The record is a 304-nucleotide RNA sequence from Nestor notabilis, which matches "Metazoan signal recognition particle RNA" in Rfam. The signal recognition particle (SRP) is a universally conserved ribonucleoprotein. It is annotated as a non-coding RNA gene. The organism belongs to Nestor, within Eukaryota. A reference for the family is Rosenblad et al. (2003), "SRPDB: Signal Recognition Particle Database", Nucleic Acids Res.
RNA sequence: GCUUCUGAGAAGUGGUGGUGCAUGCCUGUAGUCCCAGCUGCUUGGGAGGCUGAGCCCACUGAGUCGCUUGAGCCCAGGAGUUCUGGGCUGCAAUGUGCUAUGCUGAGGAGGUGUCCGUGCUAAGGCUGGCAUCACUGUCGUGAGCCCCGGGGAGCUGGGGCACACCAGGUUGACUAAGGAGGGGUGAACCAGCCCAGGUUGGAGAUGGAGCAGGUCAAAGCUCCUGUGCCGGUCAGUAGUGGGAUUGUGCCUGUGAAUAGCCACUGCAGCAUAGCCUGGGCAACACAGAGAGACACAGGUUCCU
Numbered sequence: 001g002c003u004u005c006u007g008a009g010a011a012g013u014g015g016u017g018g019u020g021c022a023u024g025c026c027u028g029u030a031g032u033c034c035c036a037g038c039u040g041c042u043u044g045g046g047a048g049g050c051u052g053a054g055c056c057c058a059c060u061g062a063g064u065c066g067c068u069u070g071a072g073c074c075c076a077g078g079a080g081u082u083c084u085g086g087g088c089u090g091c092a093a094u095g096u097g098c099u100a101u102g103c104u105g106a107g108g109a110g111g112u113g114u115c116c117g118u119g120c121u122a123a124g125g126c127u128g129g130c131a132u133c134a135c136u137g138u139c140g141u142g143a144g145c146c147c148c149g150g151g152g153a154g155c156u157g158g159g160g161c162a163c164a165c166c167a168g169g170u171u172g173a174c175u176a177a178g179g180a181g182g183g184g185u186g187a188a189c190c191a192g193c194c195c196a197g198g199u200u201g202g203a204g205a206u207g208g209a210g211c212a213g214g215u216c217a218a219a220g221c222u223c224c225u226g227u228g229c230c231g232g233u234c235a236g237u238a239g240u241g242g243g244a245u246u247g248u249g250c251c252u253g254u255g256a257a258u259a260g261c262c263a264c265u266g267c268a269g270c271a272u273a274g275c276c277u278g279g280g281c282a283a284c285a286c287a288g289a290g291a292g293a294c295a296c297a298g299g300u301u302c303c304u
Base pairs, nucleotide, nucleotide: 001050002049003048008027009026012023013022014021032047033046034045052302053301054300055299056298064291065290067288068287072281073280074279075278076277077276078275083274084273085272087270088269089268090267091266092265094263095262097261098260099259100258101257103255107254109252110251111250112249113248114247115243116242118241119240120239121238122237124234125233126232127231128230129229130228131227132226133172134171136169138167140165141164142163144161145160146159147158148157149156150155174178180225181224182223183222184221185220192215193214194213199208200207201206